BsrG: a 262-nucleotide RNA sequence from Lederbergia citrea. From the family's description: bsrE, bsrG and bsrH pair through intermolecular interactions with antisense sRNAs. They form type I toxin/antitoxin system that includes an mRNA encoding for a short, toxic peptide (bsrE, bsrG and bsrH) and an antitoxin that is comprised of an antisense RNA. bsrG encodes a 39-amino-acid toxin, and the 180 nucleotide antisense sRNA called SR4 acts as the antitoxin (they overlap by 123 nucleotides). NCBI's taxonomy places the organism under Bacteria, Bacillota, Bacilli, Caryophanales, Lederbergia. Rfam classes the family as a small RNA. Its family is annotated with toxin activity and autolysis in the Gene Ontology.
RNA sequence: CAAUAGAAUAGGUUUCUCAUGGGCGGUCGGCACACGUUUCCUCCAUAAGGAGGGAGGUGAUGCCGUAUGACAGUAUAUGAAGCACUAUCUGCGAUGUUCACAUUCGCAAUAUUGAUCAUAGCCAUACUGUCAUUUAAUAAAAAAGACUAAAACCGCCCUUGAGUUUUCCCCACUCCGGCGGUUUUAGCACGUUGUAUGUGCCGAUCCCCUAACGGGAACCUGCUAUUGUAUGGCCGUUUCGAUGUGUCUUGCAUCGGAACGG
Number, nucleotide and partner (000 for none) at each position: 001c228002a227003a226004u225005a224006g000007a000008a000009u222010a221011g220012g000013u218014u204015u203016c163017u162018c161019a160020u000021g158022g157023g156024c000025g153026g000027u151028c000029g000030g000031c000032a000033c059034a058035c000036g000037u000038u000039u000040c057041c056042u055043c054044c053045a000046u000047a000048a000049g000050g000051a000052g000053g044054g043055a042056g041057g040058u034059g033060a000061u000062g000063c000064c000065g000066u000067a000068u000069g131070a130071c129072a128073g127074u126075a125076u000077a000078u000079g000080a000081a000082g097083c096084a095085c000086u000087a000088u000089c000090u000091g000092c000093g000094a000095u084096g083097u082098u000099c000100a000101c000102a000103u000104u000105c000106g123107c000108a000109a000110u000111a000112u000113u000114g000115a000116u000117c000118a000119u000120a000121g000122c000123c106124a000125u075126a074127c073128u072129g071130u070131c069132a000133u000134u000135u000136a000137a000138u000139a000140a000141a000142a000143a000144a000145g000146a000147c000148u000149a000150a000151a027152a000153c025154c000155g000156c023157c022158c021159u000160u019161g018162a017163g016164u000165u000166u000167u000168c000169c000170c000171c000172a000173c000174u000175c000176c000177g000178g000179c000180g000181g000182u000183u000184u000185u000186a000187g000188c000189a000190c000191g000192u000193u000194g000195u000196a000197u000198g000199u000200g000201c000202c000203g015204a014205u217206c216207c215208c214209c000210u000211a000212a000213c000214g208215g207216g206217a205218a013219c000220c011221u010222g009223c000224u005225a004226u003227u002228g001229u000230a000231u000232g000233g000234c262235c261236g260237u259238u258239u257240c256241g255242a254243u253244g252245u251246g250247u000248c000249u000250u246251g245252c244253a243254u242255c241256g240257g239258a238259a237260c236261g235262g234